[Rfam]
RNA sequence: UUGAAGGUUAAGGGAGACAGUCUCUAAUUUGGGGAAAUUAGAGAUGACCGAAGGGACAAAUUUAAAUUCAUCCCAAAAGAAUUUAAAUGAAAUUCUCAGGUAAAAGGACUUUAACUGGACG
Numbered sequence: 001u002u003g004a005a006g007g008u009u010a011a012g013g014g015a016g017a018c019a020g021u022c023u024c025u026a027a028u029u030u031g032g033g034g035a036a037a038u039u040a041g042a043g044a045u046g047a048c049c050g051a052a053g054g055g056a057c058a059a060a061u062u063u064a065a066a067u068u069c070a071u072c073c074c075a076a077a078a079g080a081a082u083u084u085a086a087a088u089g090a091a092a093u094u095c096u097c098a099g100g101u102a103a104a105a106g107g108a109c110u111u112u113a114a115c116u117g118g119a120c121g
Base pairs, nucleotide, nucleotide: 006116007115008114009113010112011111012110013109020045021044022043023042024041025040026039027038047101048100049099050097051096054095055094056093060088061087062086063085064084065083066082067081068080069079

The family of this 121-nucleotide sequence from Paraclostridium benzoelyticum is "Glycine riboswitch aptamer". The match comes from Rfam's covariance-model search (53 bits).